[Rfam]
RNA sequence: GGAUGUAUUACUGGGUAAUUACUCCUUUGGCAGUUAACAAGUCACGACUAAGACUAACCGCCAAGGGAGAUUUGCCCUGCAAUCUAUCU
Numbered sequence: 001g002g003a004u005g006u007a008u009u010a011c012u013g014g015g016u017a018a019u020u021a022c023u024c025c026u027u028u029g030g031c032a033g034u035u036a037a038c039a040a041g042u043c044a045c046g047a048c049u050a051a052g053a054c055u056a057a058c059c060g061c062c063a064a065g066g067g068a069g070a071u072u073u074g075c076c077c078u079g080c081a082a083u084c085u086a087u088c089u
Base pairs, nucleotide, nucleotide: 005085007083008082009081011079013077014076015075016074017073018072022069023068024067025066028063029062030061031060033058034057035056036055

The family of this 89-nucleotide RNA sequence from Artemisia annua is "mir-399 microRNA precursor family".
The family's consensus secondary structure was predicted with PFOLD.
The source organism's lineage runs through Eukaryota, Embryophyta, Gunneridae, Asterales and Artemisia.
Its family is annotated with RISC complex and miRNA-mediated post-transcriptional gene silencing in the Gene Ontology.
About the family: mir-399 was identified in both Arabidopsis thaliana and Oryza sativa computationally and was later experimentally verified. mir-399 is thought to target mRNAs coding for a phosphatase transporter. The mature sequence is excised from the 3' arm of the hairpin.